[Rfam]
RNA sequence: CCGGCUGAACUGCUGGCGCCCUACAUUGGCGACAUUGCGGCUGAAAGCAUUAGCAAGGUCCUUCGCGGCGGCUCGUCAUUCCUGCGUAAAGGGUUACAGCGUCAGCAACGCUAUGUUGCUGAGGUGAUUACUGAAGAGUGGCGUAUGGCGCCAGGCACGCUGGAAUUAGCAUGGUUUGCGGAAGAAACGUCUGCCGUUGAACGUGCCGUCGACGCGCUAACCAAACGGCUGGAAAAACUGGAGGGCAAAUGA
Numbered sequence: 001c002c003g004g005c006u007g008a009a010c011u012g013c014u015g016g017c018g019c020c021c022u023a024c025a026u027u028g029g030c031g032a033c034a035u036u037g038c039g040g041c042u043g044a045a046a047g048c049a050u051u052a053g054c055a056a057g058g059u060c061c062u063u064c065g066c067g068g069c070g071g072c073u074c075g076u077c078a079u080u081c082c083u084g085c086g087u088a089a090a091g092g093g094u095u096a097c098a099g100c101g102u103c104a105g106c107a108a109c110g111c112u113a114u115g116u117u118g119c120u121g122a123g124g125u126g127a128u129u130a131c132u133g134a135a136g137a138g139u140g141g142c143g144u145a146u147g148g149c150g151c152c153a154g155g156c157a158c159g160c161u162g163g164a165a166u167u168a169g170c171a172u173g174g175u176u177u178g179c180g181g182a183a184g185a186a187a188c189g190u191c192u193g194c195c196g197u198u199g200a201a202c203g204u205g206c207c208g209u210c211g212a213c214g215c216g217c218u219a220a221c222c223a224a225a226c227g228g229c230u231g232g233a234a235a236a237a238c239u240g241g242a243g244g245g246c247a248a249a250u251g252a
Base pairs, nucleotide, nucleotide: 001244002243005240007081008080009079012054013053014052015051016050019047022044027040029038030037031036062075065072066071084215085214086213087212091207092206095203099144100143101142102141103140104139115128116127117126118125119124148179149178150177152174154172159167161165186198187197188196189195217231221228222227
RNA: Erse small RNA